[Rfam]
RNA sequence: AGUGAUGAUAGAGGUGCGAGCUUCAUAAGUAUGUAGUCGGAGAAGAAAGAGCUUCCGUGAAGAUUACAGAAAGGGGAGAUCGCCGAAGUAAAAAAAAGUCUCUUUUUCUUUUUUUUACUGGUUCUGCGUUUAAGAAAUGUAGGACUGUCAGGUUGUCUUUGUGCUACCUGGAGAGCUAUCUCACCG
Number, nucleotide and partner (000 for none) at each position: 001a000002g000003u000004g000005a000006u000007g180008a179009u178010a177011g176012a000013g000014g000015u000016g083017c082018g081019a080020g000021c078022u077023u076024c075025a000026u000027a000028a000029g000030u000031a000032u068033g067034u066035a065036g064037u063038c062039g000040g000041a000042g000043a000044a000045g000046a000047a000048a000049g000050a000051g000052c000053u000054u000055c000056c000057g000058u000059g000060a000061a000062g038063a037064u036065u035066a034067c033068a032069g000070a000071a000072a000073g000074g000075g024076g023077a022078g021079a000080u019081c018082g017083c016084c000085g000086a000087a119088g118089u117090a116091a115092a114093a113094a112095a111096a110097a109098g108099u000100c000101u000102c000103u000104u000105u000106u000107u000108c098109u097110u096111u095112u094113u093114u092115u091116u090117a089118c088119u087120g146121g145122u144123u143124c142125u141126g140127c139128g138129u137130u136131u000132a000133a000134g000135a000136a130137a129138u128139g127140u126141a125142g124143g123144a122145c121146u120147g000148u171149c170150a169151g168152g167153u166154u000155g000156u000157c000158u000159u000160u000161g000162u000163g000164c000165u000166a153167c152168c151169u150170g149171g148172a000173g000174a000175g000176c011177u010178a009179u008180c007181u000182c000183a000184c000185c000186g000